Description
A member of the RNA family "NiCo (Nickel/Cobalt) riboswitch aptamer" from Hungatella hathewayi, 95 nucleotides long. Gene Ontology terms of the family: metal ion homeostasis and cobalt ion binding. It scores 68 bits against the family's covariance model. NCBI's taxonomy places the organism under Bacteria, Bacillati, Lachnospirales, Hungatella, Hungatella hathewayi. The literature on the family includes a 2015 paper in Mol Cell by Furukawa et al., "Bacterial riboswitches cooperatively bind Ni(2+) or Co(2+) ions and control expression of heavy metal transporters".

[Rfam]
RNA sequence: GCGGUACAAACUGAGCAGGCGAUGGACCUUUUAUCAGGAGGUUCGUGGGGCCGGGCCAUUUUUGGCAGCAGGUGCAUGGCAUCUGCGGGACAGUC
Numbered sequence: 001g002c003g004g005u006a007c008a009a010a011c012u013g014a015g016c017a018g019g020c021g022a023u024g025g026a027c028c029u030u031u032u033a034u035c036a037g038g039a040g041g042u043u044c045g046u047g048g049g050g051c052c053g054g055g056c057c058a059u060u061u062u063u064g065g066c067a068g069c070a071g072g073u074g075c076a077u078g079g080c081a082u083c084u085g086c087g088g089g090a091c092a093g094u095c
Base pairs, nucleotide, nucleotide: 010094011093012092013091016089018052019051020050022046023045024044025043026042027041028040029039030038055066056065057064058063068086069085070084071083072082073081